[Rfam]
Nucleotides: 081
Stems, first nucleotide, its partner, number of pairs: 001080007010024002026042005057073005
Number, partner (000 for none) and nucleotide at each position: 001080g002079c003078u004077g005076c006075g007074g008000u009000g010024u011023c012000c013000c014000g015000a016000g017000u018000g019000g020000u021000u022000a023011g024010a025000g026042u027041u028040g029039g030038a031000c032000u033000c034000g035000a036000a037000a038030u039029c040028c041027a042026a043000u044000g045000g046000a047000c048000u049000c050000u051000g052000c053000c054000c055000g056000c057073a058072c059071a060070g061069g062000u063000u064000c065000g066000a067000a068000u069061c070060c071059u072058g073057u074007c075006c076005g077004c078003a079002g080001c081000g

Shown here is an 81-nucleotide RNA sequence from Cinara cedri, a member of the family "tRNA". The family's consensus secondary structure is taken from published work. Rfam 15.1 lists 5,335,975 matches to the family in 14,413 species. Lineage of the source: Eukaryota > Arthropoda > Insecta > Neoptera > Cinara.